[Rfam]
RNA sequence: UUUUUCAUAGGGAAUGAAGUUCUCCCUAGGUGUACAACCUAAACCGCUUAUUCAAGCUGAUGACUUCUGCGAAAAU
Numbered sequence: 001u002u003u004u005u006c007a008u009a010g011g012g013a014a015u016g017a018a019g020u021u022c023u024c025c026c027u028a029g030g031u032g033u034a035c036a037a038c039c040u041a042a043a044c045c046g047c048u049u050a051u052u053c054a055a056g057c058u059g060a061u062g063a064c065u066u067c068u069g070c071g072a073a074a075a076u
Base pairs, nucleotide, nucleotide: 010026011025012024013023016067017066018065019064020063021062046057047056048055049054